[Rfam]
Rfam assigns this 299-nucleotide RNA sequence from Prodigiosinella confusarubida to the family "Soft rot Enterobacteriaceae Rev 39 5'UTR". A reference for the family is Kwenda et al. (2016), "Discovery and profiling of small RNAs responsive to stress conditions in the plant pathogen Pectobacterium atrosepticum", BMC Genomics. Rfam's curators write: From bacteria cultured under starvation conditions.

RNA sequence: AAUGGUUGUCAUACUAUGACUUACUGUGGUAACUCUGUAGGUAUUCGUUCGACAAUAGAUCAAUGAACAACCUGAAAUGAAAGCGUUCUCCCUAGUGAUUAGCCUACUCGUGAUUAGUGUGGUGGUGAUUAUUAUCCCACCGUGCGGGGCUGCACUUGGACGAAGAAUGGCUUAAAAAUCAAGGCCGAAUUCAAGAAAACCCCCGCACCGAAAGGUCGGGGGUUUUUUUAUGCGGUCAGAAACCUAAACAAGGGAGCAGCUAUGUUCAGCAGAAUAAAGUCCUGUUAUUCCCAAAAGAC
Numbered sequence: 001a002a003u004g005g006u007u008g009u010c011a012u013a014c015u016a017u018g019a020c021u022u023a024c025u026g027u028g029g030u031a032a033c034u035c036u037g038u039a040g041g042u043a044u045u046c047g048u049u050c051g052a053c054a055a056u057a058g059a060u061c062a063a064u065g066a067a068c069a070a071c072c073u074g075a076a077a078u079g080a081a082a083g084c085g086u087u088c089u090c091c092c093u094a095g096u097g098a099u100u101a102g103c104c105u106a107c108u109c110g111u112g113a114u115u116a117g118u119g120u121g122g123u124g125g126u127g128a129u130u131a132u133u134a135u136c137c138c139a140c141c142g143u144g145c146g147g148g149g150c151u152g153c154a155c156u157u158g159g160a161c162g163a164a165g166a167a168u169g170g171c172u173u174a175a176a177a178a179u180c181a182a183g184g185c186c187g188a189a190u191u192c193a194a195g196a197a198a199a200c201c202c203c204c205g206c207a208c209c210g211a212a213a214g215g216u217c218g219g220g221g222g223u224u225u226u227u228u229u230a231u232g233c234g235g236u237c238a239g240a241a242a243c244c245u246a247a248a249c250a251a252g253g254g255a256g257c258a259g260c261u262a263u264g265u266u267c268a269g270c271a272g273a274a275u276a277a278a279g280u281c282c283u284g285u286u287a288u289u290c291c292c293a294a295a296a297g298a299c
Base pairs, nucleotide, nucleotide: 005033006032007031008030009029010028011027012026016021038074039073040072041071042070044067045066046065047064048063049059050058085257086256087255089253090252093248097243099241100240102237104235105234106231109119110118111117121141122140123139124138125137127136128135129134142161143160145158146157147156148155162192163191164190169186170185171184172183173182194228195227196226197225198224199223200222201221202220203219204218205217207216208215209214258286259285260284262275263274
Dot-bracket structure: ....((((((((...(....)....))))))))....(((((.(((((((.......))...)))))..)))))..........(((.((..(...(.((.(.(((..(((.....))).(((((.(((....))))))))((.((((......)))).))(((....(((((........)))))...))).((((((((((((.(((....)))))))))))))))..)..)).)..)).)....)...)).)))(((.((..........))........))).............